[Rfam]
RNA sequence: UUGACGCCUGCGUGAGCGAUGGCAGUGGAAAUCCUUUUUGCCAUGAAAAUUUCUCUUUUGUAAAAUGCAAAACCAGCAAAAAGAUUGCAACGAACAGCGCGACAGCGG
Number, nucleotide and partner (000 for none) at each position: 001u000002u000003g000004a000005c000006g000007c000008c000009u000010g000011c000012g000013u000014g000015a000016g100017c099018g098019a000020u096021g095022g000023c000024a000025g091026u090027g000028g000029a000030a086031a085032u084033c083034c000035u000036u081037u080038u079039u078040g077041c076042c000043a000044u000045g000046a000047a000048a000049a000050u000051u000052u000053c000054u000055c000056u000057u000058u000059u000060g000061u000062a000063a000064a000065a000066u000067g000068c000069a000070a000071a000072a000073c000074c000075a000076g041077c040078a039079a038080a037081a036082a000083g033084a032085u031086u030087g000088c000089a000090a026091c025092g000093a000094a000095c021096a020097g000098c018099g017100c016101g000102a000103c000104a000105g000106c000107g000108g000